The family of this 90-nucleotide sequence from Falsirhodobacter algicola is "Glycine riboswitch aptamer".
NCBI's taxonomy places the organism under Bacteria, Pseudomonadati, Alphaproteobacteria, Rhodobacterales, Falsirhodobacter.
The base pairs follow the family's consensus structure.
RNA sequence: AGCAUCAGGUCAGGGAGAAGCCGGUUCGCGCCGGUGCCGAAGGAGCAACCGCCCCGGUAAACUCUCAGGCAAAAGGACCGGCCUGAUGCG
Numbered sequence: 001a002g003c004a005u006c007a008g009g010u011c012a013g014g015g016a017g018a019a020g021c022c023g024g025u026u027c028g029c030g031c032c033g034g035u036g037c038c039g040a041a042g043g044a045g046c047a048a049c050c051g052c053c054c055c056g057g058u059a060a061a062c063u064c065u066c067a068g069g070c071a072a073a074a075g076g077a078c079c080g081g082c083c084u085g086a087u088g089c090g
Base pairs, nucleotide, nucleotide: 006085007084008083009082010081011080013079014078021034022033023032024031036070037069038068039066040065043064044063045062049057050056